[Rfam]
This 152-nucleotide RNA sequence from Zizania palustris belongs to the Rfam family "small nucleolar RNA snoR135". The family has 6 seed sequences and 837 matches in Rfam 15.1. A reference for the family is Chen and Wu (2009), "Mining small RNA sequencing data: a new approach to identify small nucleolar RNAs in Arabidopsis", Nucleic Acids Res. The family's RNA type in Rfam is H/ACA-box small nucleolar RNA. Gene Ontology terms of the family: nucleolus and RNA processing. A search with the family's covariance model found it, with a score of 65 bits.

RNA sequence: CAUGCAAGAGUAGCAUUAAUGGCAGUGCACUAAUGAAUUUGUGGUACAUGCCCCAAACCUUAUCUUGCUAAACCAAAAUUAAUGGGAAAAAUGGGCAGUUGAGUUUGACUAAUUUAUCUAUGGUUUUCUCAACAAUCAUUUUUCCCACAUGU
Numbered sequence: 001c002a003u004g005c006a007a008g009a010g011u012a013g014c015a016u017u018a019a020u021g022g023c024a025g026u027g028c029a030c031u032a033a034u035g036a037a038u039u040u041g042u043g044g045u046a047c048a049u050g051c052c053c054c055a056a057a058c059c060u061u062a063u064c065u066u067g068c069u070a071a072a073c074c075a076a077a078a079u080u081a082a083u084g085g086g087a088a089a090a091a092u093g094g095g096c097a098g099u100u101g102a103g104u105u106u107g108a109c110u111a112a113u114u115u116a117u118c119u120a121u122g123g124u125u126u127u128c129u130c131a132a133c134a135a136u137c138a139u140u141u142u143u144c145c146c147a148c149a150u151g152u
Base pairs, nucleotide, nucleotide: 004068005067006066007065008064009063015042016041018039019038020037084146085145086144087143088142089141090140091139092138093137094136098133099132100131101130102129103128